[Rfam]
RNA sequence: AUGGUAUUAUUUUGGCAAAUGGGGUCUUCAUAAAAGCACACUGGGGAGGGGGGAAUUUGGGUGGGAUUCCUCCAUUCUCACCCUCAGCCCACAAUUAAAACUGUUUGGCAGUGCUUAUUACCCAAUAAGCUUUGCAUGGAAGAGGAUCCAUCCUACAGAGCACCUACCUAUCUGCGGAGGCUUUUUUGGCUAAUGCACUGGCAAAUCGGCAAGUCACGAAAAGGGCAAUCAACUCAUAGUAAUUAGUAUGAGUCUG
Numbered sequence: 001a002u003g004g005u006a007u008u009a010u011u012u013u014g015g016c017a018a019a020u021g022g023g024g025u026c027u028u029c030a031u032a033a034a035a036g037c038a039c040a041c042u043g044g045g046g047a048g049g050g051g052g053g054a055a056u057u058u059g060g061g062u063g064g065g066a067u068u069c070c071u072c073c074a075u076u077c078u079c080a081c082c083c084u085c086a087g088c089c090c091a092c093a094a095u096u097a098a099a100a101c102u103g104u105u106u107g108g109c110a111g112u113g114c115u116u117a118u119u120a121c122c123c124a125a126u127a128a129g130c131u132u133u134g135c136a137u138g139g140a141a142g143a144g145g146a147u148c149c150a151u152c153c154u155a156c157a158g159a160g161c162a163c164c165u166a167c168c169u170a171u172c173u174g175c176g177g178a179g180g181c182u183u184u185u186u187u188g189g190c191u192a193a194u195g196c197a198c199u200g201g202c203a204a205a206u207c208g209g210c211a212a213g214u215c216a217c218g219a220a221a222a223g224g225g226c227a228a229u230c231a232a233c234u235c236a237u238a239g240u241a242a243u244u245a246g247u248a249u250g251a252g253u254c255u256g
Base pairs, nucleotide, nucleotide: 044090045089046088103206104205105204106203107202125194126193232253233252234251235250236249237248238247
RNA: Early nodulin 40
Organism: Gossypium mustelinum